[Rfam]
Shown here is an 82-nucleotide RNA sequence from Agromyces archimandritae, a member of the family "ZMP/ZTP riboswitch aptamer (pfl RNA motif)". Pairs were carried over by alignment from the consensus structure, which is taken from published work. The literature on the family includes a 2015 paper in Nat Struct Mol Biol by Jones and Ferre-D'Amare, "Recognition of the bacterial alarmone ZMP through long-distance association of two RNA subdomains".

Nucleotides: 082
Base pairs, nucleotide, nucleotide: 003051004050005049008048009047010046011045012044015041016040017070018069019068020067021066026037027036028035029034059077060076062074063073
Number, partner (000 for none) and nucleotide at each position: 001000u002000g003051c004050c005049a006000g007000c008048g009047u010046c011045g012044c013000g014000a015041c016040u017070g018069g019068c020067g021066u022000u023000g024000a025000g026037a027036u028035g029034g030000a031000g032000a033000c034029c035028c036027a037026u038000c039000g040016g041015g042000g043000a044012g045011c046010g047009a048008c049005u050004g051003g052000c053000a054000c055000g056000g057000a058000c059077c060076g061000a062074c063073c064000g065000c066021a067020c068019g069018c070017c071000u072000g073063g074062g075000c076060c077059g078000g079000g080000a081000c082000g